Rfam assigns this 130-nucleotide RNA sequence from Pycnonotus jocosus to the family "Small nucleolar RNA SNORA55". The organism belongs to Pycnonotus, within Eukaryota. Rfam 15.1 lists 1,476 matches to the family in 616 species. By type it is an H/ACA-box small nucleolar RNA. A search with the family's covariance model found it, with a score of 95 bits. Rfam's curators write: ACA55 is a member of the H/ACA class of snoRNA that guide the sites of modification of uridines to pseudouridines.
[Rfam]
RNA sequence: GCACCUGCCUCAUUCCCGUUCCUGGCUGUGCAGUGCAGGUCUGGGGGCUCUUGGUGCUACAGCACAGCAGUGGGAAUCCAGAUGGGCUCUUCACUGGUUUGGGACUCAUCUCUACACCUCUGCAACAUCA
Numbered sequence: 001g002c003a004c005c006u007g008c009c010u011c012a013u014u015c016c017c018g019u020u021c022c023u024g025g026c027u028g029u030g031c032a033g034u035g036c037a038g039g040u041c042u043g044g045g046g047g048c049u050c051u052u053g054g055u056g057c058u059a060c061a062g063c064a065c066a067g068c069a070g071u072g073g074g075a076a077u078c079c080a081g082a083u084g085g086g087c088u089c090u091u092c093a094c095u096g097g098u099u100u101g102g103g104a105c106u107c108a109u110c111u112c113u114a115c116a117c118c119u120c121u122g123c124a125a126c127a128u129c130a
Base pairs, nucleotide, nucleotide: 001057002056003055004054005053013047014046015045016044017043018042021039022038067123068122069121070120072118080111081110082109083108084107085106086105094102095101096100